[Rfam]
RNA sequence: AAAUACAAGAUGCUAAAUCCUAUCGGAGCGGGGGGACCAUUUUCUGGGGUGAAUUUCUUUAAGAAAAGGGGCAGCUAUCCCUAACCCGACAGCUAACCUCGUAAGCAUUAAGCCACAACUAA
Dot-bracket structure: ..........((((...(((....)))((((((....((.....))(((.....((((...))))..((((......))))...))).........)))))).))))...............
RNA: c-di-AMP riboswitch aptamer (ydaO/yuaA leader)